[Rfam]
RNA sequence: CAAUGAAGGAAGCAUGGUAAUGUGUAAAUAAAUAAAUUGAAUUGGGUCUCUAGGCCUGCCUUCUCUGAUGCCAUUUGGUUUUGAUUUGGGGGCAUGGUUCCGCACCAAAAUA
Numbered sequence: 001c002a003a004u005g006a007a008g009g010a011a012g013c014a015u016g017g018u019a020a021u022g023u024g025u026a027a028a029u030a031a032a033u034a035a036a037u038u039g040a041a042u043u044g045g046g047u048c049u050c051u052a053g054g055c056c057u058g059c060c061u062u063c064u065c066u067g068a069u070g071c072c073a074u075u076u077g078g079u080u081u082u083g084a085u086u087u088g089g090g091g092g093c094a095u096g097g098u099u100c101c102g103c104a105c106c107a108a109a110a111u112a
Base pairs, nucleotide, nucleotide: 012025013024014023015022044095046093047092048091054085056083058079059078060077

A member of the RNA family "Small nucleolar RNA snoR100" from Rhododendron simsii, 112 nucleotides long. The match comes from Rfam's covariance-model search (89 bits). Pairs were carried over by alignment from the consensus structure, which was predicted with WAR. The organism belongs to Rhododendron, within Eukaryota. Its family is annotated with nucleolus and RNA processing in the Gene Ontology.